[Rfam]
RNA sequence: GACCUUGGGAGGCGUUGAUCCGAUGGCGGCACGCACGCGGCCACCACGCACCGGCGGUGAGCCACUGGUGAGACCGGCCCGCGAGGCC
Numbered sequence: 001g002a003c004c005u006u007g008g009g010a011g012g013c014g015u016u017g018a019u020c021c022g023a024u025g026g027c028g029g030c031a032c033g034c035a036c037g038c039g040g041c042c043a044c045c046a047c048g049c050a051c052c053g054g055c056g057g058u059g060a061g062c063c064a065c066u067g068g069u070g071a072g073a074c075c076g077g078c079c080c081g082c083g084a085g086g087c088c
Stems, first nucleotide, its partner, number of pairs: 001087001003085001004083001006081004011063003020057003024053003029049001039075002042070004
The family of this 88-nucleotide sequence is "c-di-GMP-II-GAG riboswitch aptamer". It is one of the family's seed sequences. The family's consensus secondary structure is taken from published work. Rfam links the family to the GO terms regulation of gene expression and cyclic-di-GMP binding. For this family Rfam cites "Bioinformatic analysis of riboswitch structures uncovers variant classes with altered ligand specificity" (Weinberg et al., Proc Natl Acad Sci U S A, 2017).